[Rfam]
The family of this 191-nucleotide RNA from Cytobacillus solani is "Lysine riboswitch aptamer".
For this family Rfam cites "Regulation of lysine biosynthesis and transport genes in bacteria: yet another RNA riboswitch?" (Rodionov et al., Nucleic Acids Res, 2003).
From the family's description: Riboswitches are metabolite binding domains within certain messenger RNAs that serve as precision sensors for their corresponding targets.
Gene Ontology term of the family: lysine biosynthetic process.
RNA sequence: CGAUGAGGUAGAGGUCGCAGUUUUUAUCAGUAAGGCGGACGAGAUGCAGAGACAUUACUUGACUCCGUUUGAAAGGAAAAGCUGCCGAAGCGUGCUUGUUUCUCUGAUUAAGCAUGCUGGGGCUGUCUCCAAAUAGGAACAGAACUGUCACGAUUGGACCUACCAGCCAUUCGUGUUGGGCUAUCUUUCGG
Numbered sequence: 001c002g003a004u005g006a007g008g009u010a011g012a013g014g015u016c017g018c019a020g021u022u023u024u025u026a027u028c029a030g031u032a033a034g035g036c037g038g039a040c041g042a043g044a045u046g047c048a049g050a051g052a053c054a055u056u057a058c059u060u061g062a063c064u065c066c067g068u069u070u071g072a073a074a075g076g077a078a079a080a081g082c083u084g085c086c087g088a089a090g091c092g093u094g095c096u097u098g099u100u101u102c103u104c105u106g107a108u109u110a111a112g113c114a115u116g117c118u119g120g121g122g123c124u125g126u127c128u129c130c131a132a133a134u135a136g137g138a139a140c141a142g143a144a145c146u147g148u149c150a151c152g153a154u155u156g157g158a159c160c161u162a163c164c165a166g167c168c169a170u171u172c173g174u175g176u177u178g179g180g181c182u183a184u185c186u187u188u189c190g191g
Base pairs, nucleotide, nucleotide: 006186007185008184009183010182011181017085018084019083020082021081022080023079024078025077033070034069035068036067037066038065039064089118090117091116092115093114094113095112096111097110098109100107119146120145123142124141125140126139128137129136149175150174151173152172153171